Shown here is an 84-nucleotide RNA sequence from Erwinia billingiae, a member of the family "CyaR/Rye RNA".
A reference for the family is Wassarman et al. (2001), "Identification of novel small RNAs using comparative genomics and microarrays", Genes Dev.
[Rfam]
RNA sequence: UUGUCAAAAACGAGAAUUCGAAACGGCAGUCUUUAUCAGGAACCACCUCCUUGGCCCGUCCGGCUCCCCCGGACGGGCUUUUCU
Numbered sequence: 001u002u003g004u005c006a007a008a009a010a011c012g013a014g015a016a017u018u019c020g021a022a023a024c025g026g027c028a029g030u031c032u033u034u035a036u037c038a039g040g041a042a043c044c045a046c047c048u049c050c051u052u053g054g055c056c057c058g059u060c061c062g063g064c065u066c067c068c069c070c071g072g073a074c075g076g077g078c079u080u081u082u083c084u
Stems, first nucleotide, its partner, number of pairs: 038051004053079011
Record summary:
The family's RNA type in Rfam is small RNA. This sRNA was originally identified in a large scale screen of E. coli. It was shown to bind Hfq and called RyeE. This sRNA has since been characterised as a post-transcriptional regulator of the 18 kDa OmpX porin in Salmonella. Phylogenetic and mutational analyses suggest that a conserved RNA hairpin of this sRNA which features a C-rich apical loop, acts to sequester the Shine-Dalgarno sequence of ompX mRNA and inhibits translational initiation. The match comes from Rfam's covariance-model search (60 bits).